[Rfam]
RNA sequence: UCCACCGAGAGGUGGAAUCUGAAGGAAGCUGGAGGCAAAUCUCUGGUCUGACGAACAGAAAUCACAUCAGGCGCAAGUUGAUGGAUAAGGUUGCAAUACAAACUGAAGUCCAAUAACUACUCAGAAUCAACAGCGUAAAUGUGGCAGAUAGAUGGAGAGAAAGAUUGUGCU
Numbered sequence: 001u002c003c004a005c006c007g008a009g010a011g012g013u014g015g016a017a018u019c020u021g022a023a024g025g026a027a028g029c030u031g032g033a034g035g036c037a038a039a040u041c042u043c044u045g046g047u048c049u050g051a052c053g054a055a056c057a058g059a060a061a062u063c064a065c066a067u068c069a070g071g072c073g074c075a076a077g078u079u080g081a082u083g084g085a086u087a088a089g090g091u092u093g094c095a096a097u098a099c100a101a102a103c104u105g106a107a108g109u110c111c112a113a114u115a116a117c118u119a120c121u122c123a124g125a126a127u128c129a130a131c132a133g134c135g136u137a138a139a140u141g142u143g144g145c146a147g148a149u150a151g152a153u154g155g156a157g158a159g160a161a162a163g164a165u166u167g168u169g170c171u
Stems, first nucleotide, its partner, number of pairs: 001016006028171001030169002036163001040158006046149005062144005071136003077131006083111004089104004
This 171-nucleotide RNA from Anaerobacterium chartisolvens belongs to the Rfam family "Group II catalytic intron D1-D4-3". The organism belongs to Anaerobacterium, within Bacteria. For this family Rfam cites "The ins and outs of group II introns" (Bonen and Vogel, Trends Genet, 2001). Rfam links the family to the GO term Group II intron splicing. Group II introns are found in rRNA, tRNA and mRNA of organelles in fungi, plants and protists, and also in mRNA in bacteria.